[Rfam]
RNA sequence: AAGCCAGUUUGUGGCAGAUGAUCCAAACUCUCUAAUACAAAUUGAACUAACUAUAGCAACAAAGUCUAGCCUAUUUUGAUAUGCUCUCCUCUUUUAGACAAGCCAUUAUAUAGACUUAAUGUUU
Numbered sequence: 001a002a003g004c005c006a007g008u009u010u011g012u013g014g015c016a017g018a019u020g021a022u023c024c025a026a027a028c029u030c031u032c033u034a035a036u037a038c039a040a041a042u043u044g045a046a047c048u049a050a051c052u053a054u055a056g057c058a059a060c061a062a063a064g065u066c067u068a069g070c071c072u073a074u075u076u077u078g079a080u081a082u083g084c085u086c087u088c089c090u091c092u093u094u095u096a097g098a099c100a101a102g103c104c105a106u107u108a109u110a111u112a113g114a115c116u117u118a119a120u121g122u123u124u
Stems, first nucleotide, its partner, number of pairs: 008045002010039004016033003020029001062117007072110003077105002080102001085098003

This 124-nucleotide RNA from Pipistrellus kuhlii belongs to the Rfam family "Small nucleolar RNA SNORA28". Its Rfam clan is "SNORA28 clan". Rfam links the family to the GO terms nucleolus and RNA processing. ACA28 is a member of the H/ACA class of snoRNA that guide the sites of modification of uridines to pseudouridines. The family's RNA type in Rfam is H/ACA-box small nucleolar RNA.